A member of the RNA family "c-di-AMP riboswitch aptamer (ydaO/yuaA leader)" from Nonomuraea glycinis, 137 nucleotides long. Gene Ontology terms of the family: regulation of gene expression and cyclic-di-AMP binding. Lineage of the source: Bacteria > Actinomycetota > Actinomycetes > Streptosporangiales > Nonomuraea.
RNA sequence: CGCCGUGCCACGCCUAAUCCGGGCGAAUCGCCUGGAGCCGGGGACCCACCGCACUUGGGGUGCAUCCACUUCGGUGGUAGGGAGAGCUCUCUGACCCGAACCCGUCAGCUAACCCGGCCGGCAGAGGGAGAGGAACC
Numbered sequence: 001c002g003c004c005g006u007g008c009c010a011c012g013c014c015u016a017a018u019c020c021g022g023g024c025g026a027a028u029c030g031c032c033u034g035g036a037g038c039c040g041g042g043g044a045c046c047c048a049c050c051g052c053a054c055u056u057g058g059g060g061u062g063c064a065u066c067c068a069c070u071u072c073g074g075u076g077g078u079a080g081g082g083a084g085a086g087c088u089c090u091c092u093g094a095c096c097c098g099a100a101c102c103c104g105u106c107a108g109c110u111a112a113c114c115c116g117g118c119c120g121g122c123a124g125a126g127g128g129a130g131a132g133g134a135a136c137c
Base pairs, nucleotide, nucleotide: 012122013121014120018036019035020034021033022032023031024030025029037118038117039116040115041114042113047057048056058103059102060101066077067076068075069074080097081096082095